The family of this 148-nucleotide sequence from Pseudomonas salomonii is "PrrF RNA". A search with the family's covariance model found it, with a score of 154 bits. Rfam describes the family as follows. PrrF RNA is a small RNA involved in iron homeostasis and is found exclusively in Pseudomonas species. The family's RNA type in Rfam is small RNA.
[Rfam]
Nucleotides: 148
Stems, first nucleotide, its partner, number of pairs: 034055001036053007060087004065082002068078001095104003121140008
Number, partner (000 for none) and nucleotide at each position: 001000u002000u003000g004000a005000c006000u007000c008000u009000c010000a011000a012000a013000u014000g015000a016000g017000a018000a019000u020000c021000g022000u023000u024000a025000u026000g027000a028000u029000u030000a031000u032000c033000a034055c035000a036053g037052c038051u039050g040049g041048u042047c043000g044000c045000g046000a047042g048041a049040u050039c051038a052037g053036c054000c055034g056000a057000u058000a059000a060087c061086u062085g063084a064000a065082a066081g067000a068078c069000c070000a071000u072000u073000g074000g075000u076000u077000c078068g079000g080000a081066c082065u083000c084063u085062c086061a087060g088000a089000u090000u091000a092000u093000c094000u095104c096103c097102u098000c099000a100000u101000c102097a103096g104095g105000c106000u107000a108000a109000u110000c111000a112000c113000g114000g115000u116000u117000a118000u119000u120000u121140g122139a123138c124137c125136c126135g127134g128133c129000u130000c131000u132000u133128g134127c135126c136125g137124g138123g139122u140121c141000u142000u143000u144000u145000u146000u147000u148000a